[Rfam]
RNA sequence: GUGUCCUUUUAAGGUUGACACAGUGCUUUAAGAGCCUAACACAGAAAGGUAAAGUAAGUUUCCGUAAAACCCAGAAAUGAUAUUGCAAAAUUCCUCUUUGAAUCAUGUCUGGAGUCACAGCU
Numbered sequence: 001g002u003g004u005c006c007u008u009u010u011a012a013g014g015u016u017g018a019c020a021c022a023g024u025g026c027u028u029u030a031a032g033a034g035c036c037u038a039a040c041a042c043a044g045a046a047a048g049g050u051a052a053a054g055u056a057a058g059u060u061u062c063c064g065u066a067a068a069a070c071c072c073a074g075a076a077a078u079g080a081u082a083u084u085g086c087a088a089a090a091u092u093c094c095u096c097u098u099u100g101a102a103u104c105a106u107g108u109c110u111g112g113a114g115u116c117a118c119a120g121c122u
Stems, first nucleotide, its partner, number of pairs: 002051004007046004014040004021032001058116001060114005072100004077095001079093002083090002

Small nucleolar RNA SNORA26: a 122-nucleotide RNA. On this family, see Huttenhofer et al., EMBO J 2001: "RNomics: an experimental approach that identifies 201 candidates for novel, small, non-messenger RNAs in mouse". The family's consensus secondary structure was predicted with RNAalifold. Rfam's curators write: The snoRNA HBI-6 belong to the H/ACA family of snoRNAs, guiding the pseudouridylation of position U4522 if the 28S rRNA. HBI-6 is the human orthologue of mouse MBI-6 snoRNA. Its family is annotated with RNA processing and nucleolus in the Gene Ontology. Its Rfam clan is "SNORA27 clan".